[Rfam]
RNA sequence: GGGGGCGAUUCUGGCUUCGACGUGGAUCACGAAACCUAAGGAGCAUGUAGUGCGUUUAGUGAGCACUUAAACACUAUCUAAAAAACUUUAGUUGCCAAUGAUGACAACUACGCUCUAGCUGCUUAAUAAGCAUCACUAGACUCCUGACCUUUCCUCGCCUGUAGGGCAAGUGUUCGGGAUCAUUUAUACGGGAUCGCGGUGAAGUACGUCUGGGACGGAGCCGUUAAAACUUUUACCGGAAUCGCUCUUUUCAAUCCUGUCUAGUGGUUAGAUAAGAGUUAAAUUAAUAGCUAGACUAAACAUGUAGCGCCUUCAGAUGGACUAUUUGCGGACGCGGGUUCGAUCCCCGCCGCCUCCACCA
Numbered sequence: 001g002g003g004g005g006c007g008a009u010u011c012u013g014g015c016u017u018c019g020a021c022g023u024g025g026a027u028c029a030c031g032a033a034a035c036c037u038a039a040g041g042a043g044c045a046u047g048u049a050g051u052g053c054g055u056u057u058a059g060u061g062a063g064c065a066c067u068u069a070a071a072c073a074c075u076a077u078c079u080a081a082a083a084a085a086c087u088u089u090a091g092u093u094g095c096c097a098a099u100g101a102u103g104a105c106a107a108c109u110a111c112g113c114u115c116u117a118g119c120u121g122c123u124u125a126a127u128a129a130g131c132a133u134c135a136c137u138a139g140a141c142u143c144c145u146g147a148c149c150u151u152u153c154c155u156c157g158c159c160u161g162u163a164g165g166g167c168a169a170g171u172g173u174u175c176g177g178g179a180u181c182a183u184u185u186a187u188a189c190g191g192g193a194u195c196g197c198g199g200u201g202a203a204g205u206a207c208g209u210c211u212g213g214g215a216c217g218g219a220g221c222c223g224u225u226a227a228a229a230c231u232u233u234u235a236c237c238g239g240a241a242u243c244g245c246u247c248u249u250u251u252c253a254a255u256c257c258u259g260u261c262u263a264g265u266g267g268u269u270a271g272a273u274a275a276g277a278g279u280u281a282a283a284u285u286a287a288u289a290g291c292u293a294g295a296c297u298a299a300a301c302a303u304g305u306a307g308c309g310c311c312u313u314c315a316g317a318u319g320g321a322c323u324a325u326u327u328g329c330g331g332a333c334g335c336g337g338g339u340u341c342g343a344u345c346c347c348c349g350c351c352g353c354c355u356c357c358a359c360c361a
Stems, first nucleotide, its partner, number of pairs: 001357007021330007034318001036316002038313004043308001044304005049067005055082005114140005120135002142179006149170003153166003158192006197223004208242002211239001213237001244279006251272002256267002259296004265289001334350005

Shown here is a 361-nucleotide RNA sequence from Cocleimonas flava, a member of the family "transfer-messenger RNA".
About the family: Bacterial tmRNA, also known as 10Sa RNA or SsrA, is named for its dual tRNA and mRNA-like properties. Its role is to liberate the mRNA from a stalled ribosome.
By type it is a non-coding RNA gene.